This 102-nucleotide sequence from Cucumis melo belongs to the Rfam family "Small nucleolar RNA snoR99". It scores 89 bits against the family's covariance model. A reference for the family is Marker et al. (2002), "Experimental RNomics: identification of 140 candidates for small non-messenger RNAs in the plant Arabidopsis thaliana", Curr Biol. By type it is an H/ACA-box small nucleolar RNA.
[Rfam]
RNA sequence: GUGCUUUAGGGAUGAACAAAGUCCCACAUAUUCAUAUCCAUCCUUUUCACUUUGUCAGCUCUUUCUUUUAUGUCUUGCUGAUCAUUGUUGGAUGGUAGAUCU
Numbered sequence: 001g002u003g004c005u006u007u008a009g010g011g012a013u014g015a016a017c018a019a020a021g022u023c024c025c026a027c028a029u030a031u032u033c034a035u036a037u038c039c040a041u042c043c044u045u046u047u048c049a050c051u052u053u054g055u056c057a058g059c060u061c062u063u064u065c066u067u068u069u070a071u072g073u074c075u076u077g078c079u080g081a082u083c084a085u086u087g088u089u090g091g092a093u094g095g096u097a098g099a100u101c102u
Base pairs, nucleotide, nucleotide: 038095039094040093041092042091054082055081056080057079058078059077
Dot-bracket structure: .....................................(((((...........((((((.................))))))........))))).......